A member of the RNA family "abiF RNA" from Legionella israelensis, 37 nucleotides long. It scores 46 bits against the family's covariance model. About the family: Actinobacteria, Bacteroidetes, Clostridia, Proteobacteria, one Clostridia phage. Pairs were carried over by alignment from the consensus structure, which is taken from published work.
[Rfam]
RNA sequence: CCCGCCACGCCUCUUAACAAUGCGGACCUCGGCGGGU
Dot-bracket structure: ((((((.(((...........)))......)))))).